[Rfam]
RNA sequence: AUAACAAGAACAUGGAGUAACAAUCCAGUUCAUUUACGCGGUCAAAAGUCUUGGGAGGAUAUGGUCCUGGCGCGAUGACCCGCUGCCGCCGUCGGGAGACGGAGUAAGGAUCGGACGCGUUAAGUUGCAAGGCUUCAUGCCUUGCUUUUUUUU
Numbered sequence: 001a002u003a004a005c006a007a008g009a010a011c012a013u014g015g016a017g018u019a020a021c022a023a024u025c026c027a028g029u030u031c032a033u034u035u036a037c038g039c040g041g042u043c044a045a046a047a048g049u050c051u052u053g054g055g056a057g058g059a060u061a062u063g064g065u066c067c068u069g070g071c072g073c074g075a076u077g078a079c080c081c082g083c084u085g086c087c088g089c090c091g092u093c094g095g096g097a098g099a100c101g102g103a104g105u106a107a108g109g110a111u112c113g114g115a116c117g118c119g120u121u122a123a124g125u126u127g128c129a130a131g132g133c134u135u136c137a138u139g140c141c142u143u144g145c146u147u148u149u150u151u152u153u
Stems, first nucleotide, its partner, number of pairs: 003153002006150001013027004037119004048060004063112005069087003072083003089102005127145007
RNA: Alphaproteobacterial sRNA ar9